[Rfam]
RNA: Selenocysteine insertion sequence 3
Nucleotides: 059
Stems, first nucleotide, its partner, number of pairs: 007049007016041001018035002021033005
Number, partner (000 for none) and nucleotide at each position: 001000g002000u003000c004000u005000g006000a007049c008048a009047c010046g011045g012044c013043c014000c015000g016041a017000c018035g019034g020000u021033g022032g023031c024030a025029g026000g027000u028000c029025u030024u031023g032022c033021c034019c035018c036000g037000a038000c039000g040000c041016u042000a043013g044012g045011c046010c047009g048008u049007g050000g051000u052000g053000c054000g055000a056000u057000g058000a059000c